A member of the RNA family "Small nucleolar RNA snR43" from Meyerozyma guilliermondii, 195 nucleotides long. A reference for the family is Balakin et al. (1996), "The RNA world of the nucleolus: two major families of small RNAs defined by different box elements with related functions", Cell. By type it is an H/ACA-box small nucleolar RNA. The base pairs follow the family's consensus structure, which is taken from published work.
[Rfam]
Nucleotides: 195
Stems, first nucleotide, its partner, number of pairs: 003061004016047004021041005071122014085107004128188004134184005149174004154170001156169003160165001
Number, partner (000 for none) and nucleotide at each position: 001000a002000c003061c004060u005059c006058c007000u008000g009000u010000u011000u012000c013000u014000g015000c016047c017046u018045c019044a020000a021041g022040u023039u024038c025037u026000u027000u028000u029000u030000u031000c032000a033000c034000c035000a036000u037025a038024g039023a040022a041021u042000a043000u044019u045018g046017g047016g048000u049000u050000c051000u052000g053000u054000u055000u056000a057000g058006g059005g060004a061003g062000a063000a064000g065000a066000u067000a068000a069000a070000g071122c072121u073120g074119g075118u076117u077116g078115a079114a080113g081112a082111c083110a084109a085107c086106g087105a088104c089000a090000c091000c092000u093000u094000u095000g096000a097000u098000a099000c100000a101000a102000c103000c104088g105087u106086c107085g108000c109084u110083u111082g112081u113080u114079u115078u116077u117076g118075a119074c120073c121072a122071g123000a124000u125000c126000g127000u128188g129187u130186g131185g132000a133000c134184a135183g136182g137181c138180c139000c140000a141000a142000c143000c144000u145000u146000g147000a148000a149174g150173g151172c152171a153000u154170a155000u156169c157168g158167g159000c160165u161000c162000a163000u164000u165160g166000c167158c168157c169156g170154u171152u172151g173150u174149c175000g176000g177000u178000u179000u180138g181137g182136u183135c184134u185131c186130c187129a188128c189000u190000a191000c192000a193000u194000c195000u